[Rfam]
RNA sequence: CGCUUAUCAAGAAAGGCUGAGGGAAAUGGCCCGAUGAAGCCUUGACAACCUGCAUGUUGGUUUUAAAAAACCGCUGUAAGGUGCCAACUCCAUCCCGCGGAAGGCGGGACAGAUAAGUC
Numbered sequence: 001c002g003c004u005u006a007u008c009a010a011g012a013a014a015g016g017c018u019g020a021g022g023g024a025a026a027u028g029g030c031c032c033g034a035u036g037a038a039g040c041c042u043u044g045a046c047a048a049c050c051u052g053c054a055u056g057u058u059g060g061u062u063u064u065a066a067a068a069a070a071c072c073g074c075u076g077u078a079a080g081g082u083g084c085c086a087a088c089u090c091c092a093u094c095c096c097g098c099g100g101a102a103g104g105c106g107g108g109a110c111a112g113a114u115a116a117g118u119c
Stems, first nucleotide, its partner, number of pairs: 002118007013043005021032003026093004044085001046083002049081002051078004089111001094108005
RNA: SAM riboswitch aptamer (S box leader)
Organism: Niastella vici